[Rfam]
Source information:
The family of this 82-nucleotide RNA sequence from Trifolium pratense is "Small nucleolar RNA Z102/R77". The source organism's lineage runs through Eukaryota, Viridiplantae, Papilionoideae, Hologalegina and Trifolium. The literature on the family includes a 2003 paper in Nucleic Acids Res by Chen et al., "The high diversity of snoRNAs in plants: identification and comparative study of 120 snoRNA genes from Oryza sativa". Its family is annotated with nucleolus and RNA processing in the Gene Ontology. A search with the family's covariance model found it, with a score of 68 bits.
RNA sequence: GGUUGGAAUGAUGAACAAUUUGUUUCCUAUUGGUUUGACUGCCAGUAUGAUGGCAAUUUGUAUUAGCUCUAUCUGACCAUUC
Numbered sequence: 001g002g003u004u005g006g007a008a009u010g011a012u013g014a015a016c017a018a019u020u021u022g023u024u025u026c027c028u029a030u031u032g033g034u035u036u037g038a039c040u041g042c043c044a045g046u047a048u049g050a051u052g053g054c055a056a057u058u059u060g061u062a063u064u065a066g067c068u069c070u071a072u073c074u075g076a077c078c079a080u081u082c
Stems, first nucleotide, its partner, number of pairs: 002081001004079002037057001040055004